[Rfam]
Source information
Rfam assigns this 92-nucleotide RNA sequence to the family "mir-244 microRNA precursor family".
RNA sequence: CCCCGCUUCUCGAUUUCUUUGGUUGUACAAAGUGGUAUGCGAAUCUUUGUGAAACAUACCGCUUUUCAGCUGAAGGAAUGGAGAUUCGUGAC
Numbered sequence: 001c002c003c004c005g006c007u008u009c010u011c012g013a014u015u016u017c018u019u020u021g022g023u024u025g026u027a028c029a030a031a032g033u034g035g036u037a038u039g040c041g042a043a044u045c046u047u048u049g050u051g052a053a054a055c056a057u058a059c060c061g062c063u064u065u066u067c068a069g070c071u072g073a074a075g076g077a078a079u080g081g082a083g084a085u086u087c088g089u090g091a092c
Stems, first nucleotide, its partner, number of pairs: 002090001004088002009083003013079002016076010029065011
Source information
Rfam links the family to the GO terms RISC complex and miRNA-mediated post-transcriptional gene silencing.